[Rfam]
RNA sequence: UCACCUUUUAAAUAAGUCCAGAGAGGCUUUCAAGGGUGUAGUAGAAGGAAGAGUAUUUUAAACGCUUCCUUCUGGUUUCUUACACCCUUUUCUAUAGAAGAAAAGGGUGUUUUUUUA
Numbered sequence: 001u002c003a004c005c006u007u008u009u010a011a012a013u014a015a016g017u018c019c020a021g022a023g024a025g026g027c028u029u030u031c032a033a034g035g036g037u038g039u040a041g042u043a044g045a046a047g048g049a050a051g052a053g054u055a056u057u058u059u060a061a062a063c064g065c066u067u068c069c070u071u072c073u074g075g076u077u078u079c080u081u082a083c084a085c086c087c088u089u090u091u092c093u094a095u096a097g098a099a100g101a102a103a104a105g106g107g108u109g110u111u112u113u114u115u116u117a
Base pairs, nucleotide, nucleotide: 003037004036005035006034007033008032014029015028016027017026018025042074043073044072045071046070047069048068049067050066051065053063054062082110083109084108085107086106087105088104089103090102091101092100093099